Rfam assigns this 129-nucleotide RNA from Pipistrellus kuhlii to the family "Small nucleolar RNA SNORA38". Rfam classes the family as an H/ACA-box small nucleolar RNA. Rfam's curators write: ACA38 is a member of the H/ACA class of snoRNA that guide the sites of modification of uridines to pseudouridines. Rfam 15.1 lists 628 matches to the family in 149 species.

RNA sequence: CCCUCAUCCAAAGACAUGUCAGUGGUUCCCAGUCUUUGGACACGUAAGAAUUGAGGCCAAUAAAUCUGAAUUUUGAGAAAUCUGGGGACAGCUUGCUCCCUGCUGGCUCAAGAUCAACAUCCCAUAUAA
Number, nucleotide and partner (000 for none) at each position: 001c000002c056003c055004u054005c053006a000007u000008c000009c000010a000011a000012a000013g000014a000015c044016a000017u042018g041019u040020c039021a000022g000023u000024g030025g029026u000027u000028c000029c025030c024031a000032g000033u000034c000035u000036u000037u000038g000039g020040a019041c018042a017043c000044g015045u000046a000047a000048g000049a000050a000051u000052u000053g005054a004055g003056g002057c000058c000059a000060a000061u000062a000063a000064a000065u000066c000067u000068g122069a000070a120071u000072u119073u000074u000075g000076a000077g000078a000079a000080a000081u000082c000083u000084g000085g000086g000087g000088a000089c000090a108091g107092c106093u105094u000095g103096c102097u000098c000099c000100c000101u000102g096103c095104u000105g093106g092107c091108u090109c000110a000111a000112g000113a000114u000115c000116a000117a000118c000119a072120u070121c000122c068123c000124a000125u000126a000127u000128a000129a000